The family of this 143-nucleotide RNA from Lonepinella koalarum is "TPP riboswitch aptamer (THI element)". Pairs were carried over by alignment from the consensus structure, which is taken from published work.
[Rfam]
RNA sequence: UUACGUUAGUCGGGGUGCCGUUCAGAAGACAGAUGACAGAUGACAGAUGACAGAAAGUUAAUGUCGGAUGAAAAAACGGCUGAGAAAAUACCCGUGAACCUGAUACAGUUAACGCUGACGUAGGAAACUAACGGAAGAAAAAA
Numbered sequence: 001u002u003a004c005g006u007u008a009g010u011c012g013g014g015g016u017g018c019c020g021u022u023c024a025g026a027a028g029a030c031a032g033a034u035g036a037c038a039g040a041u042g043a044c045a046g047a048u049g050a051c052a053g054a055a056a057g058u059u060a061a062u063g064u065c066g067g068a069u070g071a072a073a074a075a076a077c078g079g080c081u082g083a084g085a086a087a088a089u090a091c092c093c094g095u096g097a098a099c100c101u102g103a104u105a106c107a108g109u110u111a112a113c114g115c116u117g118a119c120g121u122a123g124g125a126a127a128c129u130a131a132c133g134g135a136a137g138a139a140a141a142a143a
Stems, first nucleotide, its partner, number of pairs: 006131005011094004016088001017080005099124004106117003